[Rfam]
RNA sequence: ACAGUGAAGAGUUUGAUCCUGGCUCAGGAUGAACGCUAGCGAUAGGCUUAACACAUGCAAGUCGAGGGGCAGCAUGAACUUAGCUUGCUAAGUUUGAUGGCGACCGGCGCACGGGUGCGUAACGCGUAUGCAACUUGCCUCGUAGAGGGGGAUAACCCGUUGAAAGACGGACUAAUACCGCGUAUGCUCACAAGGUCGCAUGAUCAUGUGAGGAAAGAAUUUUGCUACGAGAUAGGCAUGCGUCCCAUUAGCUAGUUGGUGAGGUAACGGCUCACCAAGGCAACGAUGGGUAGGGGAACUGAGAGGUUGAACCCCCACACUGGUACUGAGACACGGACCAGACUCCUACGGGAGGCAGCAGUGAGGAAUAUUGGUCAAUGGGCGGGAGCCUGAACCAGCCAAGUCGCGUGAAGGAUGAAGGUCUUAUGGAUUGUAAACUUCUUUUAUAGGGGAAUAACGGCUAGCACGUGUGCUGGAUUGAAUGUACCCUAUGAAUAAGCAUCGGCUAACUCCGUGCCAGCAGCCGCGGUAAUACGGAGGAUGCGAGCGUUAUCCGGAUUUAUUG
Numbered sequence: 001a002c003a004g005u006g007a008a009g010a011g012u013u014u015g016a017u018c019c020u021g022g023c024u025c026a027g028g029a030u031g032a033a034c035g036c037u038a039g040c041g042a043u044a045g046g047c048u049u050a051a052c053a054c055a056u057g058c059a060a061g062u063c064g065a066g067g068g069g070c071a072g073c074a075u076g077a078a079c080u081u082a083g084c085u086u087g088c089u090a091a092g093u094u095u096g097a098u099g100g101c102g103a104c105c106g107g108c109g110c111a112c113g114g115g116u117g118c119g120u121a122a123c124g125c126g127u128a129u130g131c132a133a134c135u136u137g138c139c140u141c142g143u144a145g146a147g148g149g150g151g152a153u154a155a156c157c158c159g160u161u162g163a164a165a166g167a168c169g170g171a172c173u174a175a176u177a178c179c180g181c182g183u184a185u186g187c188u189c190a191c192a193a194g195g196u197c198g199c200a201u202g203a204u205c206a207u208g209u210g211a212g213g214a215a216a217g218a219a220u221u222u223u224g225c226u227a228c229g230a231g232a233u234a235g236g237c238a239u240g241c242g243u244c245c246c247a248u249u250a251g252c253u254a255g256u257u258g259g260u261g262a263g264g265u266a267a268c269g270g271c272u273c274a275c276c277a278a279g280g281c282a283a284c285g286a287u288g289g290g291u292a293g294g295g296g297a298a299c300u301g302a303g304a305g306g307u308u309g310a311a312c313c314c315c316c317a318c319a320c321u322g323g324u325a326c327u328g329a330g331a332c333a334c335g336g337a338c339c340a341g342a343c344u345c346c347u348a349c350g351g352g353a354g355g356c357a358g359c360a361g362u363g364a365g366g367a368a369u370a371u372u373g374g375u376c377a378a379u380g381g382g383c384g385g386g387a388g389c390c391u392g393a394a395c396c397a398g399c400c401a402a403g404u405c406g407c408g409u410g411a412a413g414g415a416u417g418a419a420g421g422u423c424u425u426a427u428g429g430a431u432u433g434u435a436a437a438c439u440u441c442u443u444u445u446a447u448a449g450g451g452g453a454a455u456a457a458c459g460g461c462u463a464g465c466a467c468g469u470g471u472g473c474u475g476g477a478u479u480g481a482a483u484g485u486a487c488c489c490u491a492u493g494a495a496u497a498a499g500c501a502u503c504g505g506c507u508a509a510c511u512c513c514g515u516g517c518c519a520g521c522a523g524c525c526g527c528g529g530u531a532a533u534a535c536g537g538a539g540g541a542u543g544c545g546a547g548c549g550u551u552a553u554c555c556g557g558a559u560u561u562a563u564u565g
Base pairs, nucleotide, nucleotide: 009025010024011023012022013021027555028554029553030552032551033550034549035548036547037546039407040406041405042404043403045400046399047365052363053362054361056360057359058358061108062107063106066105067104069101070100077094078093079092080091081090082089083088115318116317117316124243125242126241127240128239129238130237131236134235135234139231140230141229142228143227144226145225147181149179150178157170158169159168160167161166187212188211189210190209191208192207195204196203197202217223218222244290245289246288251281252280253279256278257277258276259275260274261273262272263271293315294314295313296312297308298307299306300305320341321340322339323338324337343354344353345352346351371397373396374395375394379392380391381390382389383388410441411440412439413438420432421431422430423429446492447491448490449489450488451487455482461476462475463474499544500543501542502541503540510539511538512537513536514535520527521526
The record is a 565-nucleotide part of an RNA from Porphyromonas sp. COT-290 OH860, which matches "Bacterial small subunit ribosomal RNA" in Rfam.
Taxonomically the source falls in Porphyromonas (Bacteria, Pseudomonadati, Bacteroidia, Bacteroidales).
Clan: SSU clan.
On this family, see Yusupov et al., Science 2001: "Crystal structure of the ribosome at 5.5 A resolution".
A search with the family's covariance model found it, with a score of 1439 bits.